[Rfam]
RNA sequence: GCCAUGGGGUAAGAUUGCGAACACCCCGUGAGGCGUCAGCCCAAGUUUCGCAUGUAUCCGACAAAACCAGGAGACAUGCUAUG
Numbered sequence: 001g002c003c004a005u006g007g008g009g010u011a012a013g014a015u016u017g018c019g020a021a022c023a024c025c026c027c028g029u030g031a032g033g034c035g036u037c038a039g040c041c042c043a044a045g046u047u048u049c050g051c052a053u054g055u056a057u058c059c060g061a062c063a064a065a066a067c068c069a070g071g072a073g074a075c076a077u078g079c080u081a082u083g
Base pairs, nucleotide, nucleotide: 005028006027007026008025009024010023050079051078052077053076054075055074